[Rfam]
RNA: RAGATH-18 RNA
RNA sequence: ACUGUGGAGUAUACAAGAACUUGCGAGUAGUAUAUUUAAUUUUAUUAAAUUACAAAAGCAUAUAUGAUGAAACAGUAA
Numbered sequence: 001a002c003u004g005u006g007g008a009g010u011a012u013a014c015a016a017g018a019a020c021u022u023g024c025g026a027g028u029a030g031u032a033u034a035u036u037u038a039a040u041u042u043u044a045u046u047a048a049a050u051u052a053c054a055a056a057a058g059c060a061u062a063u064a065u066g067a068u069g070a071a072a073c074a075g076u077a078a
Stems, first nucleotide, its partner, number of pairs: 001076005009065005022060003030053003035049005